[Rfam]
RNA sequence: AUUUGAAGCUCAGGCAAGAUGUUGGCAUAGCUGAUAGUCGAAAAUUAUUCAGUUAUGCUAUAUGUUGCCAGAACUUUUUUUU
Numbered sequence: 001a002u003u004u005g006a007a008g009c010u011c012a013g014g015c016a017a018g019a020u021g022u023u024g025g026c027a028u029a030g031c032u033g034a035u036a037g038u039c040g041a042a043a044a045u046u047a048u049u050c051a052g053u054u055a056u057g058c059u060a061u062a063u064g065u066u067g068c069c070a071g072a073a074c075u076u077u078u079u080u081u082u
Stems, first nucleotide, its partner, number of pairs: 005077004010072002013069005019063003023060009
Dot-bracket structure: ....((((.((.(((((.(((.(((((((((....................)))))))))))).))))).)).)))).....
RNA: mir-31 microRNA precursor family